[Rfam]
RNA sequence: AUGAGAAUAACGAGAGAUAUCUUUAAAUAGAUAGCCGAUGGAGCAAUAUAUAAAAUUCGCCAUAAUUUUUAUAGAAACUCUCAGGUAAAAGGAUCGUUAUUUGAUG
Numbered sequence: 001a002u003g004a005g006a007a008u009a010a011c012g013a014g015a016g017a018u019a020u021c022u023u024u025a026a027a028u029a030g031a032u033a034g035c036c037g038a039u040g041g042a043g044c045a046a047u048a049u050a051u052a053a054a055a056u057u058c059g060c061c062a063u064a065a066u067u068u069u070u071a072u073a074g075a076a077a078c079u080c081u082c083a084g085g086u087a088a089a090a091g092g093a094u095c096g097u098u099a100u101u102u103g104a105u106g
Stems, first nucleotide, its partner, number of pairs: 006101008019032004034086003037082002041080003047073004